[Rfam]
RNA sequence: CUUCAGCGAUCCAAGGAGCACCGGCCGGUCCGCCGGCCGCCGCUGCCCGUACGUGGCGAGCACCGCGUGUGCCUC
Numbered sequence: 001c002u003u004c005a006g007c008g009a010u011c012c013a014a015g016g017a018g019c020a021c022c023g024g025c026c027g028g029u030c031c032g033c034c035g036g037c038c039g040c041c042g043c044u045g046c047c048c049g050u051a052c053g054u055g056g057c058g059a060g061c062a063c064c065g066c067g068u069g070u071g072c073c074u075c
Stems, first nucleotide, its partner, number of pairs: 015025001031071003038065002043060002047056003

Annotation
The record is a 75-nucleotide sequence from Streptomyces sp. MZ04, which matches "ASpks TB sRNA" in Rfam. The family's consensus secondary structure is taken from published work. By type it is an antisense RNA.